[Rfam]
RNA sequence: UAAUAGCAAAGCAUAUUGCCGAAGACAGCAGGUUCCGCAAGGAGUAAACGAAGUGCCUGCCGAGGGAAUUUUGAUGAAUAGAUCGUCAUUAAGAUUAUUACCCUCUGUCGUCUGGCAGAGGGAUUUUUAUUAUACCUC
Numbered sequence: 001u002a003a004u005a006g007c008a009a010a011g012c013a014u015a016u017u018g019c020c021g022a023a024g025a026c027a028g029c030a031g032g033u034u035c036c037g038c039a040a041g042g043a044g045u046a047a048a049c050g051a052a053g054u055g056c057c058u059g060c061c062g063a064g065g066g067a068a069u070u071u072u073g074a075u076g077a078a079u080a081g082a083u084c085g086u087c088a089u090u091a092a093g094a095u096u097a098u099u100a101c102c103c104u105c106u107g108u109c110g111u112c113u114g115g116c117a118g119a120g121g122g123a124u125u126u127u128u129a130u131u132a133u134a135c136c137u138c
Stems, first nucleotide, its partner, number of pairs: 028060006034043003101122009
RNA: Ribosomal protein L10 leader
Organism: Roseburia sp. CAG:197